Overview: Rfam assigns this 145-nucleotide RNA from Gossypium harknessii to the family "MIR7502 microRNA precursor family". The family has 6 seed sequences and 74,505 matches in Rfam 15.1. The organism belongs to Gossypium, within Eukaryota. Its family is annotated with miRNA-mediated post-transcriptional gene silencing and RISC complex in the Gene Ontology.
RNA sequence: UGCUAAAAACAUCAUUUAUUUCUAUUAUUAAAAAUUGAUUCAUGUACGUGAAAAGGAGGUACAAGUAACACAUCAUGUGCAACUGUUUAAUUUUUUUGUCAGCUACACCAGUUUUUAACAUUAGAAAUAAAUGAAGUUUUCAAUA
Numbered sequence: 001u002g003c004u005a006a007a008a009a010c011a012u013c014a015u016u017u018a019u020u021u022c023u024a025u026u027a028u029u030a031a032a033a034a035u036u037g038a039u040u041c042a043u044g045u046a047c048g049u050g051a052a053a054a055g056g057a058g059g060u061a062c063a064a065g066u067a068a069c070a071c072a073u074c075a076u077g078u079g080c081a082a083c084u085g086u087u088u089a090a091u092u093u094u095u096u097u098g099u100c101a102g103c104u105a106c107a108c109c110a111g112u113u114u115u116u117a118a119c120a121u122u123a124g125a126a127a128u129a130a131a132u133g134a135a136g137u138u139u140u141c142a143a144u145a
Stems, first nucleotide, its partner, number of pairs: 002144001004142001006140005012134005018128007026120001028118006
Dot-bracket structure: .(.(.(((((.(((((.(((((((.(.((((((...............................................................................)))))).).))))))).))))).))))).).).